The record is an 88-nucleotide sequence from Desulfosalsimonas propionicica, which matches "c-di-GMP-I riboswitch aptamer" in Rfam. Pairs were carried over by alignment from the consensus structure, which is taken from published work. The organism belongs to Desulfosalsimonas, within Bacteria.

RNA sequence: GCUUGAAAAAGGCAAUUCACCUGAAAAGGUGAGACGCAAAGGAACCGGCCUAAGUCCUUUCAAAGGAUACGGCGGCGGGCCUGCCGGG
Dot-bracket structure: ...........((...((((((....))))))...))..(((..((((((....((((.....))))...)))..))).)))......
Numbered sequence: 001g002c003u004u005g006a007a008a009a010a011g012g013c014a015a016u017u018c019a020c021c022u023g024a025a026a027a028g029g030u031g032a033g034a035c036g037c038a039a040a041g042g043a044a045c046c047g048g049c050c051u052a053a054g055u056c057c058u059u060u061c062a063a064a065g066g067a068u069a070c071g072g073c074g075g076c077g078g079g080c081c082u083g084c085c086g087g088g
Stems, first nucleotide, its partner, number of pairs: 012037002017032006040082003045078003048073003055067004